[Rfam]
RNA sequence: GGGACGAUUUAUGAAAACCUCGGCUGAAAGCAGUACAUCUGUUGGCUGAGGUUGGAUGGCUAUAGUCUU
Numbered sequence: 001g002g003g004a005c006g007a008u009u010u011a012u013g014a015a016a017a018c019c020u021c022g023g024c025u026g027a028a029a030g031c032a033g034u035a036c037a038u039c040u041g042u043u044g045g046c047u048g049a050g051g052u053u054g055g056a057u058g059g060c061u062a063u064a065g066u067c068u069u
Stems, first nucleotide, its partner, number of pairs: 001069005016053010031041003